[Rfam]
RNA sequence: UGGCUGCAAUAAACAUUCAUUGCUGUCGGUGGGUUGUAGUUUAGAAAAGCUCAUUGAUCAAUGAAUGCAAACUGCAGACCA
Numbered sequence: 001u002g003g004c005u006g007c008a009a010u011a012a013a014c015a016u017u018c019a020u021u022g023c024u025g026u027c028g029g030u031g032g033g034u035u036g037u038a039g040u041u042u043a044g045a046a047a048a049g050c051u052c053a054u055u056g057a058u059c060a061a062u063g064a065a066u067g068c069a070a071a072c073u074g075c076a077g078a079c080c081a
Stems, first nucleotide, its partner, number of pairs: 001081003004077005014067009025058007033050003